Description: Small nucleolar RNA SNORD11B: an 84-nucleotide sequence from Oryzias latipes. The family has 37 seed sequences and 733 matches in Rfam 15.1. For this family Rfam cites "snoSeeker: an advanced computational package for screening of guide and orphan snoRNA genes in the human genome" (Yang et al., Nucleic Acids Res, 2006). Gene Ontology terms of the family: RNA processing and nucleolus. The source organism's lineage runs through Eukaryota, Atherinomorphae, Beloniformes, Adrianichthyoidei and Oryzias.
[Rfam]
RNA sequence: UGGCAGUGCUGAUGAUGUCGACAGUUGUCUUCAACCUGAAUAUCCCCGUGUGGGUUUUCAGUCACUACCUCAUCUGAACUGUCA
Numbered sequence: 001u002g003g004c005a006g007u008g009c010u011g012a013u014g015a016u017g018u019c020g021a022c023a024g025u026u027g028u029c030u031u032c033a034a035c036c037u038g039a040a041u042a043u044c045c046c047c048g049u050g051u052g053g054g055u056u057u058u059c060a061g062u063c064a065c066u067a068c069c070u071c072a073u074c075u076g077a078a079c080u081g082u083c084a
Stems, first nucleotide, its partner, number of pairs: 002083006
Notes
It is one of the family's seed sequences.